[Rfam]
Rfam assigns this 114-nucleotide RNA sequence from Dolosigranulum pigrum to the family "FMN riboswitch aptamer (RFN element)".
Rfam describes the family as follows. The RFN element is a highly conserved domain that is found frequently in the 5'-untranslated regions of prokaryotic mRNAs that encode for flavin mononucleotide (FMN) biosynthesis and transport proteins.
RNA sequence: AUUCAUCUUCAGGGGCAGGGUGCAAUUCCCGACCGGUGGUAACAGUCCACGAGCGUAAGCUGAGCUGGUGUAAUUCCAGUACCGACAGUACAGUCUGGCAUAAAGAAGAUGGGG
Numbered sequence: 001a002u003u004c005a006u007c008u009u010c011a012g013g014g015g016c017a018g019g020g021u022g023c024a025a026u027u028c029c030c031g032a033c034c035g036g037u038g039g040u041a042a043c044a045g046u047c048c049a050c051g052a053g054c055g056u057a058a059g060c061u062g063a064g065c066u067g068g069u070g071u072a073a074u075u076c077c078a079g080u081a082c083c084g085a086c087a088g089u090a091c092a093g094u095c096u097g098g099c100a101u102a103a104a105g106a107a108g109a110u111g112g113g114g
Base pairs, nucleotide, nucleotide: 003112004111005110006109007108008107009106010105018030019029020028032094033093034084035083036050037049038048039047045082046081053060054059064080065079066078067077068076086097087096088095